Overview: The family of this 116-nucleotide RNA sequence from Ruminococcaceae bacterium CPB6 is "FMN riboswitch aptamer (RFN element)". The base pairs follow the family's consensus structure, which is taken from published work.
RNA sequence: UAAAAUCUUCAGGGCAGGGUGCAAUUCCCUAUCGGUGGUAAAGCCCACGAGCCGCAAGGCAUGAUUUGGUGAAAUUCCAAAGCCGGCAGUAAAAGUCUGAAUAAAAGAAGAGUAAA
Dot-bracket structure: ...(.(((((......(((.......))).[[((((((....[[))))....(.....).....(((((.......)))))]])).(((.....]]))).......))))).)...
Numbered sequence: 001u002a003a004a005a006u007c008u009u010c011a012g013g014g015c016a017g018g019g020u021g022c023a024a025u026u027c028c029c030u031a032u033c034g035g036u037g038g039u040a041a042a043g044c045c046c047a048c049g050a051g052c053c054g055c056a057a058g059g060c061a062u063g064a065u066u067u068g069g070u071g072a073a074a075u076u077c078c079a080a081a082g083c084c085g086g087c088a089g090u091a092a093a094a095g096u097c098u099g100a101a102u103a104a105a106a107g108a109a110g111a112g113u114a115a116a
Stems, first nucleotide, its partner, number of pairs: 004113001006111005017029003031096002033085002035048004043083002053059001065081005087099003